Rfam assigns this 126-nucleotide RNA sequence from Cavia porcellus to the family "Small nucleolar RNA SNORA28".
Gene Ontology terms of the family: nucleolus and RNA processing.
The literature on the family includes a 2001 paper in EMBO J by Huttenhofer et al., "RNomics: an experimental approach that identifies 201 candidates for novel, small, non-messenger RNAs in mouse".
The family is grouped with related families in Rfam's "SNORA28 clan".
ACA28 is a member of the H/ACA class of snoRNA that guide the sites of modification of uridines to pseudouridines.
It is one of the family's seed sequences.

RNA sequence: AAGCAACACUCUGUGACAGAUUAUCAAAAUAGUCUGUCACAAUUUGAGCUUGCUAUAGCAAGAAAGUCUAACCUAUUCCGGCACUCUCCUUUCUGUGAGACAAGCCGUUACAUAGACUGAAACAAG
Numbered sequence: 001a002a003g004c005a006a007c008a009c010u011c012u013g014u015g016a017c018a019g020a021u022u023a024u025c026a027a028a029a030u031a032g033u034c035u036g037u038c039a040c041a042a043u044u045u046g047a048g049c050u051u052g053c054u055a056u057a058g059c060a061a062g063a064a065a066g067u068c069u070a071a072c073c074u075a076u077u078c079c080g081g082c083a084c085u086c087u088c089c090u091u092u093c094u095g096u097g098a099g100a101c102a103a104g105c106c107g108u109u110a111c112a113u114a115g116a117c118u119g120a121a122a123c124a125a126g
Stems, first nucleotide, its partner, number of pairs: 009048003012041004017036006065118006074112001076110001079107004087100002090097001